Description: Small nucleolar RNA SNORA11: a 117-nucleotide sequence from Carlito syrichta. Rfam links the family to the GO terms RNA processing and nucleolus. It scores 98 bits against the family's covariance model. The literature on the family includes a 2005 paper in Nucleic Acids Res by Gu et al., "A novel experimental approach for systematic identification of box H/ACA snoRNAs from eukaryotes". NCBI's taxonomy places the organism under Eukaryota, Metazoa, Chordata, Sarcopterygii, Carlito. Pairs were carried over by alignment from the consensus structure, which was predicted with RNAalifold. U107 (SNORA11) is a member of the H/ACA class of snoRNAs that guide the sites of modification of uridines to pseudouridines. This snoRNA was identified by RT-PCR from blood cells and its expression confirmed by Northern blot analysis. There is no predicted target for this guide snRNA.

[Rfam]
RNA sequence: GGGGUGUGCUCAGAGCACGGGGCAUGGGUGUUUACAAUACACCCAACAAGAAUCUAGGGUCAUUGUAAUGAGGGGCACAAAACUGGUGAUCUUCCUAUGAACAAAUGUCCUACACAU
Numbered sequence: 001g002g003g004g005u006g007u008g009c010u011c012a013g014a015g016c017a018c019g020g021g022g023c024a025u026g027g028g029u030g031u032u033u034a035c036a037a038u039a040c041a042c043c044c045a046a047c048a049a050g051a052a053u054c055u056a057g058g059g060u061c062a063u064u065g066u067a068a069u070g071a072g073g074g075g076c077a078c079a080a081a082a083c084u085g086g087u088g089a090u091c092u093u094c095c096u097a098u099g100a101a102c103a104a105a106u107g108u109c110c111u112a113c114a115c116a117u
Base pairs, nucleotide, nucleotide: 002044003043004042005041006040007039008038013033014032015031016030017029018028057110058109059108060107064103065102066101069099070098072092073091074090076088077087078086080084